[Rfam]
Nucleotides: 158
Stems, first nucleotide, its partner, number of pairs: 002155001004153009014143008023134003027130015044113003048109005054103005070087005
Number, partner (000 for none) and nucleotide at each position: 001000c002155c003000a004153u005152u006151a007150a008149g009148u010147g011146a012145u013000a014143a015142u016141a017140u018139g019138a020137u021136a022000u023134a024133c025132g026000a027130a028129g029128u030127g031126u032125c033124a034123u035122g036121u037120c038119a039118u040117c041116a042000c043000a044113u045112c046111a047000u048109g049108u050107c051106a052105u053000u054103g055102a056101c057100a058099c059000a060000u061000c062000a063000u064000u065000g066000u067000u068000a069000u070087g071086u072085c073084a074083u075000u076000a077000a078000a079000g080000a081000u082000g083074a084073u085072g086071a087070u088000g089000u090000g091000g092000c093000u094000a095000u096000g097000a098000g099058g100057u101056g102055u103054c104000u105052a106051u107050g108049a109048c110000a111046u112045g113044g114000c115000a116041u117040g118039a119038u120037g121036a122035u123034g124033u125032g126031a127030c128029a129028c130027u131000c132025u133024g134023u135000u136021u137020g138019u139018c140017a141016u142015g143014u144000c145012a146011u147010c148009a149008c150007u151006u152005a153004a154000c155002g156000a157000a158000a
MIR4371 microRNA precursor family: a 158-nucleotide sequence from Glycine max. Clan: MIR4387 microRNA precursor clan. The family has 4 seed sequences and 321 matches in Rfam 15.1. Its family is annotated with RISC complex and miRNA-mediated post-transcriptional gene silencing in the Gene Ontology. The organism belongs to Glycine subgen. Soja, within Eukaryota.